[Rfam]
RNA sequence: UGUGAUGUUAUAUUGCUUUCAAGGCCUUCCUUAAGACCUGAAGAACAAUUUUUGGAAACCCUCUCCUUCAUUGGGCAGGGUG
Numbered sequence: 001u002g003u004g005a006u007g008u009u010a011u012a013u014u015g016c017u018u019u020c021a022a023g024g025c026c027u028u029c030c031u032u033a034a035g036a037c038c039u040g041a042a043g044a045a046c047a048a049u050u051u052u053u054g055g056a057a058a059c060c061c062u063c064u065c066c067u068u069c070a071u072u073g074g075g076c077a078g079g080g081u082g
Stems, first nucleotide, its partner, number of pairs: 022039003026035003058081005064075003
Overview
A member of the RNA family "SmY spliceosomal RNA" from Caenorhabditis remanei, 82 nucleotides long. Pairs were carried over by alignment from the consensus structure, which is taken from published work. By type it is a spliceosomal small nuclear RNA. It is one of the family's seed sequences. For this family Rfam cites "Direct analysis of nematode cis- and trans-spliceosomes: a functional role for U5 snRNA in spliced leader addition trans-splicing and the identification of novel Sm snRNPs" (Maroney et al., RNA, 1996). Lineage of the source: Eukaryota > Metazoa > Rhabditina > Rhabditomorpha > Caenorhabditis.